[Rfam]
RNA sequence: AGUUCCACCGGGUCCACCGACCGGGUGACCAUGAGGUAGUUGCGGAUCAUGAUCUCGUGCCGGUUCUC
Numbered sequence: 001a002g003u004u005c006c007a008c009c010g011g012g013u014c015c016a017c018c019g020a021c022c023g024g025g026u027g028a029c030c031a032u033g034a035g036g037u038a039g040u041u042g043c044g045g046a047u048c049a050u051g052a053u054c055u056c057g058u059g060c061c062g063g064u065u066c067u068c
Stems, first nucleotide, its partner, number of pairs: 004063002008059001011030003015027004035056002038053001040052003044048001
The record is a 68-nucleotide sequence from Nocardia arthritidis, which matches "ASdes TB sRNA" in Rfam. For this family Rfam cites "Identification of small RNAs in Mycobacterium tuberculosis" (Arnvig and Young, Mol Microbiol, 2009). The family's RNA type in Rfam is small RNA. Pairs were carried over by alignment from the consensus structure, which is taken from published work.